[Rfam]
Description: Rfam assigns this 91-nucleotide RNA from Ricinus communis to the family "Small nucleolar RNA snoR109". NCBI's taxonomy places the organism under Eukaryota, Spermatophyta, fabids, Euphorbiaceae, Ricinus.

Nucleotides: 091
Stems, first nucleotide, its partner, number of pairs: 023084007034072003038068003042063004
Number, partner (000 for none) and nucleotide at each position: 001000c002000g003000g004000c005000u006000g007000u008000a009000g010000c011000u012000a013000u014000a015000u016000c017000a018000a019000u020000u021000u022000c023084a024083g025082a026081a027080g028079c029078u030000a031000a032000c033000u034072g035071g036070c037000c038068g039067g040066u041000u042063g043062u044061u045060g046000u047000u048000u049000u050000u051000g052000a053000g054000a055000u056000c057000c058000a059000u060045c061044g062043a063042c064000a065000u066040a067039u068038c069000u070036g071035c072034u073000u074000a075000c076000c077000g078029a079028g080027c081026u082025u083024c084023u085000u086000a087000u088000a089000u090000u091000u

Notes
Rfam's curators put it in the seed alignment.